[Rfam]
RNA: SAM riboswitch aptamer (S box leader)
RNA sequence: CUCUUAUCAAGAGUGGCGGAGGGAUAGGCCCUGCGAUGCCCAGCAACCUUCAGAGGAAUUAUUCUGAAAAGGUGCUAAUUCCUACAGACUGCAUGGUCUGAGAGAUAAGGA
Numbered sequence: 001c002u003c004u005u006a007u008c009a010a011g012a013g014u015g016g017c018g019g020a021g022g023g024a025u026a027g028g029c030c031c032u033g034c035g036a037u038g039c040c041c042a043g044c045a046a047c048c049u050u051c052a053g054a055g056g057a058a059u060u061a062u063u064c065u066g067a068a069a070a071g072g073u074g075c076u077a078a079u080u081c082c083u084a085c086a087g088a089c090u091g092c093a094u095g096g097u098c099u100g101a102g103a104g105a106u107a108a109g110g111a
Stems, first nucleotide, its partner, number of pairs: 002110007013041001015040003021031003025084004042076004047072002049068006080103001085100006